The family of this 80-nucleotide sequence from Channa argus is "Small nucleolar RNA SNORD74". Rfam links the family to the GO terms RNA processing and nucleolus. By type it is a C/D-box small nucleolar RNA. On this family, see Galardi et al., Mol Cell Biol 2002: "Purified box C/D snoRNPs are able to reproduce site-specific 2'-O-methylation of target RNA in vitro". Rfam 15.1 lists 929 matches to the family in 615 species.

RNA sequence: CCCAAGGCUACAUGAUGAAAUAAAUGUUGGUAGGGACAUCUGAGUAACUGAAGAAACGCCAACUUUUCUGACUGCUUGGG
Numbered sequence: 001c002c003c004a005a006g007g008c009u010a011c012a013u014g015a016u017g018a019a020a021u022a023a024a025u026g027u028u029g030g031u032a033g034g035g036a037c038a039u040c041u042g043a044g045u046a047a048c049u050g051a052a053g054a055a056a057c058g059c060c061a062a063c064u065u066u067u068c069u070g071a072c073u074g075c076u077u078g079g080g
Base pairs, nucleotide, nucleotide: 001080002079003078004077005076